[Rfam]
RNA sequence: UUUAGAACUCAAGAUAUGGGCUGAAUACUGAACAAUGUCUAGGCUACAGAACAUAUUCAAACUUCUCCGUUGUUGCUACAAUUUGAACUUGAAAAUAGUCUUUUUGAAUUUGGACUCCCAUGAAAGUUUUAGGCCUAUGUCUUAGUUUUCUAAA
Numbered sequence: 001u002u003u004a005g006a007a008c009u010c011a012a013g014a015u016a017u018g019g020g021c022u023g024a025a026u027a028c029u030g031a032a033c034a035a036u037g038u039c040u041a042g043g044c045u046a047c048a049g050a051a052c053a054u055a056u057u058c059a060a061a062c063u064u065c066u067c068c069g070u071u072g073u074u075g076c077u078a079c080a081a082u083u084u085g086a087a088c089u090u091g092a093a094a095a096u097a098g099u100c101u102u103u104u105u106g107a108a109u110u111u112g113g114a115c116u117c118c119c120a121u122g123a124a125a126g127u128u129u130u131a132g133g134c135c136u137a138u139g140u141c142u143u144a145g146u147u148u149u150c151u152a153a154a
Base pairs, nucleotide, nucleotide: 002153003152004151005150006149007148008145009144011143012142013141014140015139016138017137018136019135020134021132022131023130024129025128027127028126029125035121036120037119042117043116045114048111050110051109055104060099062098063097072088073087074086

A member of the RNA family "MIR2912 microRNA precursor family" from Populus tomentosa, 154 nucleotides long.
The base pairs follow the family's consensus structure, which was predicted with RNAalifold.
The organism belongs to Populus, within Eukaryota.
The match comes from Rfam's covariance-model search (125 bits).
Rfam 15.1 lists 15,051 matches to the family in 15 species.